Rfam assigns this 110-nucleotide RNA sequence from Thermomicrobium roseum to the family "SAM riboswitch aptamer (S box leader)".
Rfam's curators write: The SAM riboswitch is found upstream of a number of genes which code for proteins involved in methionine or cysteine biosynthesis in Gram-positive bacteria.

[Rfam]
RNA sequence: CGCUCAUCUCGAGCGGUGGAGGGAACGGCCCGACGAAACCCGGCAACCAGCGCAGGCCACUGCGCCAGGUGCCAAUGCCGGCGGAGCGGGAAAGCUCCGCACGAUGAGCG
Numbered sequence: 001c002g003c004u005c006a007u008c009u010c011g012a013g014c015g016g017u018g019g020a021g022g023g024a025a026c027g028g029c030c031c032g033a034c035g036a037a038a039c040c041c042g043g044c045a046a047c048c049a050g051c052g053c054a055g056g057c058c059a060c061u062g063c064g065c066c067a068g069g070u071g072c073c074a075a076u077g078c079c080g081g082c083g084g085a086g087c088g089g090g091a092a093a094g095c096u097c098c099g100c101a102c103g104a105u106g107a108g109c110g
Stems, first nucleotide, its partner, number of pairs: 001110008013041001015040003021031003026080003042073004047069002050065003077102001082099006